[Rfam]
RNA sequence: UAAUAUUACAGAUAAUACUGUUUUACACUUAAGAUUUGAUAGUGAUAUUAAGCGUGAUGUAAGCACGCCUGCUUAAGUGGGAAGGGCCUAUAAGAAGGCUCUUUUUUUAUUUAUA
Number, nucleotide and partner (000 for none) at each position: 001u000002a000003a000004u000005a000006u000007u000008a021009c020010a019011g018012a016013u000014a000015a000016u012017a000018c011019u010020g009021u008022u000023u000024u000025a000026c079027a078028c077029u076030u075031a074032a000033g000034a000035u000036u071037u000038g069039a048040u047041a046042g000043u000044g000045a000046u041047a040048u039049u000050a000051a000052g068053c067054g066055u065056g064057a000058u000059g000060u000061a000062a000063g000064c056065a055066c054067g053068c052069c038070u000071g036072c000073u000074u031075a030076a029077g028078u027079g026080g105081g104082a103083a102084g101085g100086g099087c098088c097089u096090a000091u000092a000093a000094g000095a000096a089097g088098g087099c086100u085101c084102u083103u082104u081105u080106u000107u000108u000109a000110u000111u000112u000113a000114u000115a000
RNA: DUF3800-I RNA
Organism: Peptoniphilus sp. ING2-D1G